The record is an 85-nucleotide RNA sequence from Nothobranchius furzeri, which matches "mir-184 microRNA precursor family" in Rfam. The literature on the family includes a 2005 paper in Genes Dev by Chen et al., "The developmental miRNA profiles of zebrafish as determined by small RNA cloning". A search with the family's covariance model found it, with a score of 59 bits. Rfam 15.1 lists 948 matches to the family in 823 species. The organism belongs to Nothobranchius, within Eukaryota.
RNA sequence: UCAGACACAUCUACUUAUGAUUUUUCCAGUCCAGCUCUUUAUCGAAUGUUUGUUGGACGGAGAACUGAUAAGGGUAUGUGUCUGA
Numbered sequence: 001u002c003a004g005a006c007a008c009a010u011c012u013a014c015u016u017a018u019g020a021u022u023u024u025u026c027c028a029g030u031c032c033a034g035c036u037c038u039u040u041a042u043c044g045a046a047u048g049u050u051u052g053u054u055g056g057a058c059g060g061a062g063a064a065c066u067g068a069u070a071a072g073g074g075u076a077u078g079u080g081u082c083u084g085a
Stems, first nucleotide, its partner, number of pairs: 012074001014072005020066001022064006030056002